[Rfam]
RNA sequence: GGUGCAGGCCGUGACUGGCGCGUUGGGAUGGGAUCGACCAUCGGGAAGCGGCCUCGUCGAAGGACGGAGUGCCGUGCGCCUGGGCCCCCUUC
Dot-bracket structure: .....(((((((..(([[[[[......((((......))))..))..)))))))..............(.(((..]]]]]..))).).....
Numbered sequence: 001g002g003u004g005c006a007g008g009c010c011g012u013g014a015c016u017g018g019c020g021c022g023u024u025g026g027g028a029u030g031g032g033a034u035c036g037a038c039c040a041u042c043g044g045g046a047a048g049c050g051g052c053c054u055c056g057u058c059g060a061a062g063g064a065c066g067g068a069g070u071g072c073c074g075u076g077c078g079c080c081u082g083g084g085c086c087c088c089c090u091u092c
Stems, first nucleotide, its partner, number of pairs: 006054007015045002017080005028041004069087001071085003

ZMP/ZTP riboswitch aptamer (pfl RNA motif): a 92-nucleotide sequence from Actinopolymorpha singaporensis. The family's consensus secondary structure is taken from published work.